[Rfam]
RNA sequence: GGAUAGCAUUAUUUUGCUAUCCCCAACCAAUAACACAAUGACAUGUGAAAAAGUUAUCUCACAUGUCAUUGUGUUAUUGGCCAAAAAUAGCAAAACGUUACAUGAAA
Numbered sequence: 001g002g003a004u005a006g007c008a009u010u011a012u013u014u015u016g017c018u019a020u021c022c023c024c025a026a027c028c029a030a031u032a033a034c035a036c037a038a039u040g041a042c043a044u045g046u047g048a049a050a051a052a053g054u055u056a057u058c059u060c061a062c063a064u065g066u067c068a069u070u071g072u073g074u075u076a077u078u079g080g081c082c083a084a085a086a087a088u089a090g091c092a093a094a095a096c097g098u099u100a101c102a103u104g105a106a107a
Stems, first nucleotide, its partner, number of pairs: 004104002012095009027080022050057001

Source information: Rfam assigns this 107-nucleotide RNA from Prunus armeniaca to the family "MIR6274 microRNA precursor family". The family has 2 seed sequences and 342 matches in Rfam 15.1. Taxonomically the source falls in Prunus (Eukaryota, Tracheophyta, Magnoliopsida, Pentapetalae).